[Rfam]
RNA: c-di-AMP riboswitch aptamer (ydaO/yuaA leader)
RNA sequence: UAACUCAGAAGGCCGAAGCUCCAGCAAGCACGGGGGAACCAUUAUUUGGGGUGAAGCCGCUAUCUGCGGCCGGGUGAUUACUCUUUGACCCGAAUCCGACAGCUAACCUCGCAGGCCGCAAAAAGGAGAGGU
Number, nucleotide and partner (000 for none) at each position: 001u000002a000003a000004c000005u000006c000007a000008g000009a000010a000011g117012g116013c115014c114015g000016a000017a000018g029019c028020u027021c000022c000023a000024g000025c000026a000027a020028g019029c018030a000031c111032g110033g109034g108035g107036g000037a000038a000039c000040c048041a047042u000043u000044a000045u000046u000047u041048g040049g097050g096051g095052u000053g000054a000055a000056g000057c069058c068059g067060c066061u000062a000063u000064c000065u000066g060067c059068g058069g057070c000071c000072g091073g090074g089075u088076g000077a000078u000079u000080a000081c000082u000083c000084u000085u000086u000087g000088a075089c074090c073091c072092g000093a000094a000095u051096c050097c049098g000099a000100c000101a000102g000103c000104u000105a000106a000107c035108c034109u033110c032111g031112c000113a000114g014115g013116c012117c011118g000119c000120a000121a000122a000123a000124a000125g000126g000127a000128g000129a000130g000131g000132u000